[Rfam]
The record is a 67-nucleotide RNA from Callithrix jacchus, which matches "mir-1204 microRNA precursor family" in Rfam.
RNA sequence: ACCUCAUGGCCUGGUCUCUAUUAUUUGAGACGAGCUACAUCUUGGAGGUGAGGACAUGCCUUGUGGU
Numbered sequence: 001a002c003c004u005c006a007u008g009g010c011c012u013g014g015u016c017u018c019u020a021u022u023a024u025u026u027g028a029g030a031c032g033a034g035c036u037a038c039a040u041c042u043u044g045g046a047g048g049u050g051a052g053g054a055c056a057u058g059c060c061u062u063g064u065g066g067u
Base pairs, nucleotide, nucleotide: 002066003065005063006062008060009059010058014055015054016053017052019050020049021048022047024046025045026044027043028042029041030040032038
It scores 82 bits against the family's covariance model. Taxonomically the source falls in Callithrix (Eukaryota, Bilateria, Theria, Haplorrhini).